[Rfam]
RNA sequence: UUGCGCAAGUGCCAGUUAUAUGGACAGUCUUCGCAAGCCCCUGCUGCACCGAUAGGCCUAAGCUUUACCUCAGUUUCACGGCCCGGACGUAAGCGUCCAUCCGGCCCGCCCAAUCAGGCAGGCCGUCGCCGCCGAUCCCACCGGAUCGUCACGGCCCCCGGGUCCGCACCGCCCAACCAGGCAGGCGAGGAAAGCGGCGACACAAUCGCCAGCACAGGACAGACAGCAAAAAGGGAGACCGCGGGGUCUCCCU
Numbered sequence: 001u002u003g004c005g006c007a008a009g010u011g012c013c014a015g016u017u018a019u020a021u022g023g024a025c026a027g028u029c030u031u032c033g034c035a036a037g038c039c040c041c042u043g044c045u046g047c048a049c050c051g052a053u054a055g056g057c058c059u060a061a062g063c064u065u066u067a068c069c070u071c072a073g074u075u076u077c078a079c080g081g082c083c084c085g086g087a088c089g090u091a092a093g094c095g096u097c098c099a100u101c102c103g104g105c106c107c108g109c110c111c112a113a114u115c116a117g118g119c120a121g122g123c124c125g126u127c128g129c130c131g132c133c134g135a136u137c138c139c140a141c142c143g144g145a146u147c148g149u150c151a152c153g154g155c156c157c158c159c160g161g162g163u164c165c166g167c168a169c170c171g172c173c174c175a176a177c178c179a180g181g182c183a184g185g186c187g188a189g190g191a192a193a194g195c196g197g198c199g200a201c202a203c204a205a206u207c208g209c210c211a212g213c214a215c216a217g218g219a220c221a222g223a224c225a226g227c228a229a230a231a232a233g234g235g236a237g238a239c240c241g242c243g244g245g246g247u248c249u250c251c252c253u
Stems, first nucleotide, its partner, number of pairs: 002011003043057003076193001079190001081163004085098004102125004108119003128155004134147005165187003169184001171182003194213002196210005232253004237248004
A member of the RNA family "Pseudomonas sRNA P24" from Pseudomonas cavernae, 253 nucleotides long. Rfam classes the family as a non-coding RNA gene. The literature on the family includes a 2006 paper in Nucleic Acids Res by Livny et al., "Identification of 17 Pseudomonas aeruginosa sRNAs and prediction of sRNA-encoding genes in 10 diverse pathogens using the bioinformatic tool sRNAPredict2". Rfam describes the family as follows. This small RNA (sRNA) was computationally identified in the genome of the opportunistic pathogen Pseudomonas aeruginosa and its expression verified by Northern blot analysis. P24 is conserved across several Pseudomonas species and in Azotobacter vinelandii. It appears to be consistently located between a hypothetical protein gene and a transcriptional regulator gene (AsnC family) in the genomes of all these species. P24 has a predicted Rho independent terminator at the 3' end but the function of P24 is unknown. NCBI's taxonomy places the organism under Bacteria, Gammaproteobacteria, Pseudomonadales, Pseudomonadaceae, Pseudomonas. The base pairs follow the family's consensus structure, which was predicted with RNAalifold.